[Rfam]
RNA: Group II catalytic intron D1-D4-1
Nucleotides: 112
Stems, first nucleotide, its partner, number of pairs: 001027001004023004009018003039048003049112003058105008
Number, partner (000 for none) and nucleotide at each position: 001027c002000u003000a004023a005022u006021a007020g008000a009018u010017c011016a012000g013000a014000g015000a016011u017010g018009a019000c020007c021006u022005a023004u024000g025000a026000u027001g028000c029000a030000c031000u032000u033000a034000c035000a036000g037000a038000a039048g040047u041046c042000a043000g044000c045000c046041g047040a048039c049112g050111u051110c052000a053000u054000a055000g056000u057000a058105g059104a060103u061102g062101a063100u064099u065098u066000a067000a068000u069000c070000u071000u072000u073000c074000u075000g076000g077000a078000u079000u080000u081000u082000a083000a084000g085000g086000a087000g088000g089000g090000u091000c092000c093000a094000c095000a096000u097000c098065g099064a100063a101062u102061c103060a104059u105058u106000g107000a108000a109000g110051g111050a112049c